Annotation: The record is a 173-nucleotide RNA sequence from Moritella sp. Urea-trap-13, which matches "Manganese Mn2+ riboswitch aptamer (yybP-ykoY)" in Rfam. Rfam 15.1 lists 1,126 matches to the family in 1,062 species.
RNA sequence: GGGAGUAGUCGCUUCACCAUGUGAAGGAAUACAUCAACAUAACUGACCCACAGGUCGUGGUGUAUUCAACCUAGUUUAAAGCUAAUAGCGCUAAACUAAGUUUGAUGAGACUUGAACAAGUAAACACCUACUUUCGAGGGCGGGGUGUCGCUUGUUUAUGUCUAAAUGCCCUC
Numbered sequence: 001g002g003g004a005g006u007a008g009u010c011g012c013u014u015c016a017c018c019a020u021g022u023g024a025a026g027g028a029a030u031a032c033a034u035c036a037a038c039a040u041a042a043c044u045g046a047c048c049c050a051c052a053g054g055u056c057g058u059g060g061u062g063u064a065u066u067c068a069a070c071c072u073a074g075u076u077u078a079a080a081g082c083u084a085a086u087a088g089c090g091c092u093a094a095a096c097u098a099a100g101u102u103u104g105a106u107g108a109g110a111c112u113u114g115a116a117c118a119a120g121u122a123a124a125c126a127c128c129u130a131c132u133u134u135c136g137a138g139g140g141c142g143g144g145g146u147g148u149c150g151c152u153u154g155u156u157u158a159u160g161u162c163u164a165a166a167u168g169c170c171c172u173c
Stems, first nucleotide, its partner, number of pairs: 013025003027067010044057005074173001
Dot-bracket structure: ............(((.......))).((((((((((.......(((((....)))))))))))))))......(..................................................................................................)
Rfam's curators write: This RNA was originally discovered in E. coli during a large scale screen and was named SraF. The family was later found to exist upstream of related families of protein genes in many bacteria, including the the yybP and ykoK genes in B. subtilis. NCBI's taxonomy places the organism under Bacteria, Pseudomonadati, Gammaproteobacteria, Moritellaceae, Moritella. The base pairs follow the family's consensus structure.